[Rfam]
RNA sequence: CCUACCACCGCGCCCGGGGCCGGAUGUACAGGUAGGGACGGGGGACCCAGGUUCUCCGGAGUCCGGUUCGCCGGCUCCUUGGGGUGAAGCCACUCGCUGCGAGGCGAGCGGCCGGGCAGUCUCCAGCCCGAACCCGACAGCUCACCUCGCAGGCGUUUCGGAGGAAUGAC
Dot-bracket structure: .....(.((...(((...................))).(((((....((((..........................))))(((.....((.((((........)))).))..((((........))))...))).........)))))..)).)...............
c-di-AMP riboswitch aptamer (ydaO/yuaA leader): a 170-nucleotide RNA from Salana multivorans. Rfam describes the family as follows. This family represents a conserved RNA structure found upstream of the ydaO and yuaA genes in Bacillus subtilis and related genes in other bacteria. The match comes from Rfam's covariance-model search (59 bits). The source organism's lineage runs through Bacteria, Actinomycetota, Micrococcales, Beutenbergiaceae and Salana.